RNA: UnaL2 LINE 3' element
Organism: Clupea harengus
RNA sequence: UGUUCUCUCCUUUGUACGUCGCUUUGGAUAAAAGCGUCUGCUAAAUGAAACGUA
Numbered sequence: 001u002g003u004u005c006u007c008u009c010c011u012u013u014g015u016a017c018g019u020c021g022c023u024u025u026g027g028a029u030a031a032a033a034g035c036g037u038c039u040g041c042u043a044a045a046u047g048a049a050a051c052g053u054a
Stems, first nucleotide, its partner, number of pairs: 013043001014041003020036006